About this RNA:
Rfam assigns this 73-nucleotide RNA sequence from Limosilactobacillus equigenerosi to the family "tRNA". Transfer RNA (tRNA) molecules are approximately 80 nucleotides in length. The match comes from Rfam's covariance-model search (62 bits).

RNA sequence: ACGGGUAUAGCCAAGUUGGUAAGGCAACGGUUUUUGGUGCCGUGAUUCGUAGGUUCGAGUCCUGCUACCCGUG
Dot-bracket structure: (((((((..(((..........))).(((((.......))))).....(((((.......)))))))))))).